[Rfam]
About this RNA:
This 102-nucleotide RNA from Desulfitobacterium dichloroeliminans belongs to the Rfam family "Guanidine-I riboswitch aptamer". This family represents a conserved RNA structure found upstream of the ykkC and yxkD genes in Bacillus subtilis and related genes in other bacteria. The match comes from Rfam's covariance-model search (81 bits). Pairs were carried over by alignment from the consensus structure.

RNA sequence: CUAAAUGCUUUCUAGGGUUCCGCAAACCAUAGACGUUGGCCUGGUCCGAGAGAAAGCUCACAGUAAUCUACUGUGUCACGGAGGGAUAAAAGCCUGGGAGAA
Numbered sequence: 001c002u003a004a005a006u007g008c009u010u011u012c013u014a015g016g017g018u019u020c021c022g023c024a025a026a027c028c029a030u031a032g033a034c035g036u037u038g039g040c041c042u043g044g045u046c047c048g049a050g051a052g053a054a055a056g057c058u059c060a061c062a063g064u065a066a067u068c069u070a071c072u073g074u075g076u077c078a079c080g081g082a083g084g085g086a087u088a089a090a091a092g093c094c095u096g097g098g099a100g101a102a
Stems, first nucleotide, its partner, number of pairs: 007057006015047002020044002022041001023038003027035001059075007077097001079100001083095003